The record is a 227-nucleotide part of an RNA from Candidatus Macondimonas diazotrophica, which matches "Bacterial large subunit ribosomal RNA" in Rfam. A search with the family's covariance model found it, with a score of 2916 bits. The family's consensus secondary structure is taken from published work. The source organism's lineage runs through Bacteria, Pseudomonadati, Pseudomonadota, Ectothiorhodospiraceae and Candidatus Macondimonas.

[Rfam]
RNA sequence: GAGUUACUUUCAGUGGCAAGCUUAACCGCUUAGGGAAGGCGUAGGGAAACCGAGUCUUAAUAGGGCGUUUAGUCGCUGGGAGUAGACCCGAAACCGGGCGAUCUAUCCAUGGCCAGGGUGAAGGCGCCGUAACAGGCGCUGGAGGCCCGAACCCACUCCCGUUGCAAUGGUAGGGGAUGAGCUGUGGAUAGGAGUGAAAGGCUAAUCAAGCCCGGAGAUAGCUGGUU
Numbered sequence: 001g002a003g004u005u006a007c008u009u010u011c012a013g014u015g016g017c018a019a020g021c022u023u024a025a026c027c028g029c030u031u032a033g034g035g036a037a038g039g040c041g042u043a044g045g046g047a048a049a050c051c052g053a054g055u056c057u058u059a060a061u062a063g064g065g066c067g068u069u070u071a072g073u074c075g076c077u078g079g080g081a082g083u084a085g086a087c088c089c090g091a092a093a094c095c096g097g098g099c100g101a102u103c104u105a106u107c108c109a110u111g112g113c114c115a116g117g118g119u120g121a122a123g124g125c126g127c128c129g130u131a132a133c134a135g136g137c138g139c140u141g142g143a144g145g146c147c148c149g150a151a152c153c154c155a156c157u158c159c160c161g162u163u164g165c166a167a168u169g170g171u172a173g174g175g176g177a178u179g180a181g182c183u184g185u186g187g188a189u190a191g192g193a194g195u196g197a198a199a200g201g202c203u204a205a206u207c208a209a210g211c212c213c214g215g216a217g218a219u220a221g222c223u224g225g226u227u
Stems, first nucleotide, its partner, number of pairs: 005084013020040004026034002044051002054066004087225002090222001094215006103191011114179001116148004123140006152176003156173002159170002193203003